Rfam assigns this 193-nucleotide RNA sequence from Koleobacter methoxysyntrophicus to the family "Lysine riboswitch aptamer". NCBI's taxonomy places the organism under Bacteria, Bacillota, Clostridia, Koleobacteraceae, Koleobacter. Gene Ontology term of the family: lysine biosynthetic process.
RNA sequence: AGGUGAGGUAGAGGCGCGAUUAACAAAGAGUAUUUUUGGUUAGGGAGGGAAGCCCAAUGAUCCAAAAAGAAAGGUGUUGUCGCCGAAGUGUAAAUGAUGAUUCCCCAUCAUUUAUGCUGGGCCUAUAUCGAAGAGGUAUAGGACUGUCACCAGGGAUUUUGCCCUGAAUUCCUGGUGGAGCGCUAUCUCACUA
Numbered sequence: 001a002g003g004u005g006a007g008g009u010a011g012a013g014g015c016g017c018g019a020u021u022a023a024c025a026a027a028g029a030g031u032a033u034u035u036u037u038g039g040u041u042a043g044g045g046a047g048g049g050a051a052g053c054c055c056a057a058u059g060a061u062c063c064a065a066a067a068a069g070a071a072a073g074g075u076g077u078u079g080u081c082g083c084c085g086a087a088g089u090g091u092a093a094a095u096g097a098u099g100a101u102u103c104c105c106c107a108u109c110a111u112u113u114a115u116g117c118u119g120g121g122c123c124u125a126u127a128u129c130g131a132a133g134a135g136g137u138a139u140a141g142g143a144c145u146g147u148c149a150c151c152a153g154g155g156a157u158u159u160u161g162c163c164c165u166g167a168a169u170u171c172c173u174g175g176u177g178g179a180g181c182g183c184u185a186u187c188u189c190a191c192u193a
Stems, first nucleotide, its partner, number of pairs: 006188006016083005023077003033068007087118012119145002122142008147178012